[Rfam]
RNA sequence: ACGAGGUGACGAUAAGAUUCAUAGUCUGUCAAUCCACUGAAACAAUUCUGUGAUGUUAAUUGUGAAUCCCGACAGGUUCUGAUCGU
Numbered sequence: 001a002c003g004a005g006g007u008g009a010c011g012a013u014a015a016g017a018u019u020c021a022u023a024g025u026c027u028g029u030c031a032a033u034c035c036a037c038u039g040a041a042a043c044a045a046u047u048c049u050g051u052g053a054u055g056u057u058a059a060u061u062g063u064g065a066a067u068c069c070c071g072a073c074a075g076g077u078u079c080u081g082a083u084c085g086u
Stems, first nucleotide, its partner, number of pairs: 001086004
Background
This 86-nucleotide RNA sequence from Kalanchoe fedtschenkoi belongs to the Rfam family "Small nucleolar RNA snoR14". The family has 7 seed sequences and 668 matches in Rfam 15.1. The pairing is the family consensus, mapped onto this sequence. The source organism's lineage runs through Eukaryota, Streptophyta, Streptophytina, Embryophyta and Kalanchoe. The match comes from Rfam's covariance-model search (81 bits).